The family of this 102-nucleotide RNA sequence from Holtiella tumoricola is "Purine riboswitch aptamer". Pairs were carried over by alignment from the consensus structure, which is taken from published work. A search with the family's covariance model found it, with a score of 80 bits. NCBI's taxonomy places the organism under Bacteria, Bacillota, Clostridia, Cellulosilyticaceae, Holtiella.
RNA sequence: AGUAAGUAUCAAACAGUAAUUCGUAUAUAAUCGGUAAUAAGGUCCGAAAGUUUCUACCUGCCAACCUUAAAUUGGCGGACUACGAGGUGUUUAAAGUUUUGC
Number, nucleotide and partner (000 for none) at each position: 001a000002g000003u000004a000005a000006g000007u000008a000009u000010c000011a000012a000013a000014c000015a000016g000017u000018a088019a000020u086021u085022c084023g083024u082025a081026u000027a000028u000029a000030a000031u047032c046033g045034g044035u000036a000037a000038u000039a000040a000041g000042g000043u000044c034045c033046g032047a031048a000049a000050g000051u000052u000053u000054c000055u000056a000057c000058c078059u077060g076061c075062c074063a073064a072065c000066c000067u000068u000069a000070a000071a000072u064073u063074g062075g061076c060077g059078g058079a000080c000081u025082a024083c023084g022085a021086g020087g000088u018089g000090u000091u000092u000093a000094a000095a000096g000097u000098u000099u000100u000101g000102c000